Shown here is a 165-nucleotide RNA sequence from Sapayoa aenigma, a member of the family "Small Cajal body specific RNA 1". The organism belongs to Sapayoa, within Eukaryota.
RNA sequence: GAGCACUUGGUACUAACCGAGCCUUCGGUGUCCCGGCCUCGUGCAGAGGCCUGAGGUUCACCCUGUGAUCGCUGGGUCUGCAAAGUGCAACAGCAAAGCAAGCCAUGCAGUGUUUAAGCUCAGUGUGUGAAGGAAGACACUGGGUUAUAGCUCAGAGGCACAGAA
Numbered sequence: 001g002a003g004c005a006c007u008u009g010g011u012a013c014u015a016a017c018c019g020a021g022c023c024u025u026c027g028g029u030g031u032c033c034c035g036g037c038c039u040c041g042u043g044c045a046g047a048g049g050c051c052u053g054a055g056g057u058u059c060a061c062c063c064u065g066u067g068a069u070c071g072c073u074g075g076g077u078c079u080g081c082a083a084a085g086u087g088c089a090a091c092a093g094c095a096a097a098g099c100a101a102g103c104c105a106u107g108c109a110g111u112g113u114u115u116a117a118g119c120u121c122a123g124u125g126u127g128u129g130a131a132g133g134a135a136g137a138c139a140c141u142g143g144g145u146u147a148u149a150g151c152u153c154a155g156a157g158g159c160a161c162a163g164a165a
Base pairs, nucleotide, nucleotide: 003088004087005086006085007084008083016077017076018075020073021072022071025068026067027062028061029060030059031056032055033053035051036050037049038048039047040046102159103158104157123138124137126135128133140155141154142153143152144151145150
The family's consensus secondary structure was predicted with RNAalifold.
Rfam's curators write: scaRNAs are a specific class of small nuclear RNAs which localise to the Cajal bodies and guide the modification of RNA polymerase II transcribed spliceosomal RNAs U1, U2, U4, U5 and U12. ACA35 belong to the H/ACA box class of guide RNAs as it has the predicted hairpin-hinge-hairpin-tail structure, conserved H/ACA-box motifs and is found associated with GAR1.
By type it is a small Cajal body RNA.
The family has 29 seed sequences and 715 matches in Rfam 15.1.
Gene Ontology terms of the family: Cajal body, nucleolus and RNA processing.